[Rfam]
RNA sequence: CCCAGGGCUUCGCCCUGGGCUAUAUUAUUGCGCCCCUUCGGGGCU
Dot-bracket structure: ((((((((...))))))))............(((((...))))).
This 45-nucleotide RNA sequence from a Planctomycetota bacterium belongs to the Rfam family "Acido-Lenti-1 RNA". It scores 55 bits against the family's covariance model. The family's consensus secondary structure is taken from published work. Rfam classes the family as a small RNA.